[Rfam]
RNA: Small nucleolar RNA SNORD59
Organism: Cuculus canorus
RNA sequence: CCUCCCGUGAUGAUGCAUUUUAGACUUUCGUUCUCCUGAGCUUGCUGAAGCCAAGGAUUUCAAUCUGAGGAGG
Number, nucleotide and partner (000 for none) at each position: 001c073002c072003u071004c000005c069006c000007g000008u000009g000010a000011u000012g000013a000014u000015g000016c000017a000018u000019u000020u000021u000022a000023g000024a000025c000026u000027u000028u000029c000030g000031u000032u000033c000034u000035c000036c000037u000038g000039a000040g000041c000042u000043u000044g000045c000046u000047g000048a000049a000050g000051c000052c000053a000054a000055g000056g000057a000058u000059u000060u000061c000062a000063a000064u000065c000066u000067g000068a000069g005070g000071a003072g002073g001